[Rfam]
Shown here is a 135-nucleotide sequence from Microbispora oryzae, a member of the family "c-di-AMP riboswitch aptamer (ydaO/yuaA leader)". This family represents a conserved RNA structure found upstream of the ydaO and yuaA genes in Bacillus subtilis and related genes in other bacteria. NCBI's taxonomy places the organism under Bacteria, Bacillati, Streptosporangiales, Streptosporangiaceae, Microbispora. It scores 91 bits against the family's covariance model.
RNA sequence: CCCGCCCGGCCGCCGAGUCCGCGUCCGCGCGGAGCCGGGGAUCCACCUCUCCUUGGGGUGAAUCGGCACUUGUGCCGUAGGGCCACUUCCAGCCCGAACCCGUCAGCUAACCCGGUAGGCGGCAUGGAAGUAAGG
Numbered sequence: 001c002c003c004g005c006c007c008g009g010c011c012g013c014c015g016a017g018u019c020c021g022c023g024u025c026c027g028c029g030c031g032g033a034g035c036c037g038g039g040g041a042u043c044c045a046c047c048u049c050u051c052c053u054u055g056g057g058g059u060g061a062a063u064c065g066g067c068a069c070u071u072g073u074g075c076c077g078u079a080g081g082g083c084c085a086c087u088u089c090c091a092g093c094c095c096g097a098a099c100c101c102g103u104c105a106g107c108u109a110a111c112c113c114g115g116u117a118g119g120c121g122g123c124a125u126g127g128a129a130g131u132a133a134g135g
Stems, first nucleotide, its partner, number of pairs: 011121004018033005034116006044055002056101003064077004080095004